[Rfam]
RNA sequence: GUCUUCUCAAGUGAGUCUAGGAUAGUGAAAGCUAGACGAGGCUGAAGCAAUAAUUGGCGCUUUCAGAGUGAGCCAAGCUCAAUUUUUUUAAACAAAUGAAGUAAUAAAUUAGGGUGGAACCGCGUUUCUGACG
Numbered sequence: 001g002u003c004u005u006c007u008c009a010a011g012u013g014a015g016u017c018u019a020g021g022a023u024a025g026u027g028a029a030a031g032c033u034a035g036a037c038g039a040g041g042c043u044g045a046a047g048c049a050a051u052a053a054u055u056g057g058c059g060c061u062u063u064c065a066g067a068g069u070g071a072g073c074c075a076a077g078c079u080c081a082a083u084u085u086u087u088u089u090a091a092a093c094a095a096a097u098g099a100a101g102u103a104a105u106a107a108a109u110u111a112g113g114g115u116g117g118a119a120c121c122g123c124g125u126u127u128c129u130g131a132c133g
Stems, first nucleotide, its partner, number of pairs: 001120002004118003007114002015073002021064002024061004030055002033052001085101004
Description
Shown here is a 133-nucleotide RNA from Streptococcus downei, a member of the family "Streptococcus sRNA SpR19". Lineage of the source: Bacteria > Bacillati > Bacilli > Streptococcaceae > Streptococcus downei. Pairs were carried over by alignment from the consensus structure, which was predicted with mfold.